Rfam assigns this 72-nucleotide sequence from Crocodylus porosus to the family "Mammalian CPEB3 ribozyme". It scores 41 bits against the family's covariance model.
[Rfam]
Nucleotides: 072
Stems, first nucleotide, its partner, number of pairs: 012045004020072007027039003049061002052058002
Number, partner (000 for none) and nucleotide at each position: 001000a002000u003000a004000u005000g006000u007000g008000u009000a010000u011000g012045g013044g014043g015042g016000a017000c018000a019000u020072a021071g022070c023069a024068g025067a026066g027039g028038u029037g030000u031000u032000u033000a034000c035000g036000a037029u038028g039027c040000a041000a042015c043014c044013c045012c046000u047000g048000u049061c050060a051000a052058g053057u054000a055000a056000u057053a058052u059000c060050u061049g062000u063000g064000a065000a066026u067025u068024c069023u070022g071021c072020u